This 155-nucleotide RNA sequence from Azoarcus taiwanensis belongs to the Rfam family "radC RNA".
RNA sequence: UCCUUGCCUGCAUGUUCGUCGGCGUUGUCGACACAUGCCCAGGCAGUCGAGGCCUUCAAGACUGCAAGUGCGGGAAACCGCACUGGUCGUUUUCUAUCUCUCGGGCGUAUCACGCCCAUCCACGCCACCCACAAGGGACCCCAUCCCUUGCGGGC
Numbered sequence: 001u002c003c004u005u006g007c008c009u010g011c012a013u014g015u016u017c018g019u020c021g022g023c024g025u026u027g028u029c030g031a032c033a034c035a036u037g038c039c040c041a042g043g044c045a046g047u048c049g050a051g052g053c054c055u056u057c058a059a060g061a062c063u064g065c066a067a068g069u070g071c072g073g074g075a076a077a078c079c080g081c082a083c084u085g086g087u088c089g090u091u092u093u094c095u096a097u098c099u100c101u102c103g104g105g106c107g108u109a110u111c112a113c114g115c116c117c118a119u120c121c122a123c124g125c126c127a128c129c130c131a132c133a134a135g136g137g138a139c140c141c142c143a144u145c146c147c148u149u150g151c152g153g154g155c
Stems, first nucleotide, its partner, number of pairs: 011037005018032006043065006051088004067084007124155003132150007
Lineage of the source: Bacteria > Pseudomonadati > Pseudomonadota > Betaproteobacteria > Azoarcus. By type it is a cis-regulatory element.